[Rfam]
Nucleotides: 237
Base pairs, nucleotide, nucleotide: 038064039063040062041061042060043059070236071235072234073233074232103230104229105228106227108224109223110222116164117163118162119161120160125156126155127154128153129152130151132143133142134141135140166207167206168205169204170203171202
Number, partner (000 for none) and nucleotide at each position: 001000a002000c003000u004000u005000a006000g007000c008000u009000a010000a011000a012000u013000c014000g015000u016000u017000u018000g019000g020000u021000u022000c023000a024000a025000a026000a027000c028000a029000u030000u031000u032000g033000c034000u035000u036000g037000c038064u039063g040062u041061c042060u043059u044000g045000g046000c047000a048000u049000a050000a051000c052000a053000u054000c055000a056000a057000u058000a059043a060042a061041g062040g063039c064038a065000u066000a067000a068000a069000c070236a071235u072234c073233g074232c075000a076000a077000a078000a079000u080000a081000a082000u083000g084000g085000u086000u087000a088000u089000a090000a091000u092000u093000a094000a095000a096000u097000g098000g099000c100000u101000a102000u103230g104229a105228g106227g107000a108224u109223g110222g111000u112000u113000u114000u115000a116164g117163u118162a119161c120160g121000u122000a123000g124000g125156c126155g127154u128153u129152g130151c131000g132143g133142a134141a135140c136000u137000u138000c139000g140135g141134u142133u143132c144000a145000u146000a147000u148000a149000g150000a151130g152129c153128a154127a155126u156125g157000a158000a159000u160120c161119g162118u163117g164116c165000a166207u167206g168205c169204u170203a171202g172000g173000a174000a175000a176000a177000c178000u179000g180000a181000c182000c183000a184000c185000a186000c187000a188000c189000a190000g191000u192000g193000u194000u195000g196000g197000c198000a199000g200000a201000c202171c203170u204169a205168g206167u207166a208000u209000c210000u211000u212000u213000c214000g215000a216000a217000g218000a219000u220000u221000u222110c223109c224108a225000u226000a227106c228105c229104u230103c231000c232074g233073c234072g235071a236070u237000c
The record is a 237-nucleotide RNA from Drosophila melanogaster, which matches "R2 RNA element" in Rfam. Rfam classes the family as a cis-regulatory element. Taxonomically the source falls in Sophophora (Eukaryota, Panorpida, Eremoneura, Drosophilini). The literature on the family includes a 2004 paper in RNA by Ruschak et al., "Secondary structure models of the 3' untranslated regions of diverse R2 RNAs". It is one of the family's seed sequences. The family has 15 seed sequences and 3,698 matches in Rfam 15.1. About the family: This family represents the 3' UTR region of the R2 retrotransposable element. This family is known to interact with the R2-encoded reverse transcriptase in a reaction known as target primed reverse transcription (TPRT).